[Rfam]
The family of this 263-nucleotide part of an RNA from an uncultured archaeon is "Archaeal large subunit ribosomal RNA". Pairs were carried over by alignment from the consensus structure, which is taken from published work.
Nucleotides: 263
Stems, first nucleotide, its partner, number of pairs: 005118006012111006020045004026038004049056002062085004069078003088101004121261002124258001128251006137227011148215001150182004157174007187212004192208002195206002229239003
Number, partner (000 for none) and nucleotide at each position: 001000g002000a003000g004000u005118g006117u007116a008115u009114u010113c011000a012111a013110g014109u015108g016107g017106c018000g019000a020045g021044g022043u023042u024000a025000a026038c027037a028036a029035a030000u031000u032000a033000a034000a035029u036028u037027u038026g039000g040000u041000u042023a043022g044021c045020c046000u047000a048000a049056g050055c051000g052000a053000a054000a055050g056049c057000a058000a059000c060000a061000a062085g063084c064083g065082c066000a067000c068000a069078a070077c071076c072000u073000u074000c075000g076071g077070g078069u079000g080000a081000g082065g083064c084063g085062c086000g087000g088101c089100g090099u091098a092000u093000a094000c095000a096000a097000g098091u099090g100089c101088g102000u103000g104000g105000a106017g107016u108015c109014a110013c111012u112000a113010g114009g115008a116007u117006a118005c119000u120000a121261c122260c123000c124258g125000a126000a127000u128251c129250c130249u131248a132247g133246c134000g135000a136000u137227c138226u139225a140224g141223g142222c143221g144220u145219g146218g147217g148215c149000a150182g151181g152180c153179u154000g155000a156000a157174g158173c159172g160171u161170g162169g163168g164000g165000a166000a167000a168163c169162c170161u171160a172159c173158g174157u175000g176000g177000a178000g179153g180152g181151c182150c183000g184000c185000a186000a187212g188211c189210g190209g191000u192208a193207u194000u195206g196205a197000u198000c199000u200000g201000c202000a203000a204000a205196u206195c207193a208192u209190u210189c211188g212187c213000g214000u215148g216000a217147c218146c219145u220144g221143u222142g223141u224140c225139u226138a227137g228000g229239g230238g231237u232000g233000a234000a235000a236000g237231g238230c239229c240000a241000a242000u243000c244000g245000a246133g247132c248131u249130a250129g251128g252000u253000u254000a255000u256000a257000g258124c259000u260122g261121g262000u263000u